[Rfam]
RNA sequence: GCGGAUGUGGCGAAACUGGUAAACGCAAGGGACUUAAAAUCCCUCGUCUUCAAUGACUUGCGGGUUCGAUCCCCGCCAUCCGCA
Numbered sequence: 001g002c003g004g005a006u007g008u009g010g011c012g013a014a015a016c017u018g019g020u021a022a023a024c025g026c027a028a029g030g031g032a033c034u035u036a037a038a039a040u041c042c043c044u045c046g047u048c049u050u051c052a053a054u055g056a057c058u059u060g061c062g063g064g065u066u067c068g069a070u071c072c073c074c075g076c077c078a079u080c081c082g083c084a
Stems, first nucleotide, its partner, number of pairs: 001083007010026003028044005060076005
Dot-bracket structure: (((((((..(((...........))).(((((.......)))))...............(((((.......)))))))))))).